Small nucleolar RNA SNORD45: an 82-nucleotide sequence from Bucorvus abyssinicus. It scores 49 bits against the family's covariance model. Rfam links the family to the GO terms nucleolus and RNA processing. The family has 11 seed sequences and 1,629 matches in Rfam 15.1. Rfam classes the family as a C/D-box small nucleolar RNA.
RNA sequence: GGUCUGUGAUGGAGUUGGCAUGUAUUAUCUGAGCCCGAAUCUGAGGAUGGUCAGUUUAGCUCUGGAAUGACUCUGAGACCCG
Numbered sequence: 001g002g003u004c005u006g007u008g009a010u011g012g013a014g015u016u017g018g019c020a021u022g023u024a025u026u027a028u029c030u031g032a033g034c035c036c037g038a039a040u041c042u043g044a045g046g047a048u049g050g051u052c053a054g055u056u057u058a059g060c061u062c063u064g065g066a067a068u069g070a071c072u073c074u075g076a077g078a079c080c081c082g
Base pairs, nucleotide, nucleotide: 001080002079003078004077
A reference for the family is Galardi et al. (2002), "Purified box C/D snoRNPs are able to reproduce site-specific 2'-O-methylation of target RNA in vitro", Mol Cell Biol.